Overview:
A member of the RNA family "MIR398 microRNA precursor family" from Acer yangbiense, 88 nucleotides long. Taxonomically the source falls in Acer (Eukaryota, Streptophyta, Tracheophyta, Acereae). Its family is annotated with RISC complex and miRNA-mediated post-transcriptional gene silencing in the Gene Ontology. On this family, see Jones-Rhoades and Bartel, Mol Cell 2004: "Computational identification of plant microRNAs and their targets, including a stress-induced miRNA". A search with the family's covariance model found it, with a score of 80 bits.
RNA sequence: AGAGAUCCUACAGGAGCGACCUGAGAUCACAUGUGGGACGUGUGCCCUUACCUUUCAUGUGUUCUCAGGUCGCCCCUGUCGGGCUUUU
Numbered sequence: 001a002g003a004g005a006u007c008c009u010a011c012a013g014g015a016g017c018g019a020c021c022u023g024a025g026a027u028c029a030c031a032u033g034u035g036g037g038a039c040g041u042g043u044g045c046c047c048u049u050a051c052c053u054u055u056c057a058u059g060u061g062u063u064c065u066c067a068g069g070u071c072g073c074c075c076c077u078g079u080c081g082g083g084c085u086u087u088u
Base pairs, nucleotide, nucleotide: 007082008081011078012077013076014075016073017072018071019070023066024065025064026063028061029060030059031058032057